RNA sequence: GGGUGUUCGCGUUGAUGCGGGCAGGUUUUCCACGCUGGUCGGGCCGCCAGUG
Numbered sequence: 001g002g003g004u005g006u007u008c009g010c011g012u013u014g015a016u017g018c019g020g021g022c023a024g025g026u027u028u029u030c031c032a033c034g035c036u037g038g039u040c041g042g043g044c045c046g047c048c049a050g051u052g
Stems, first nucleotide, its partner, number of pairs: 005022007033052007
RNA: nhaA-I RNA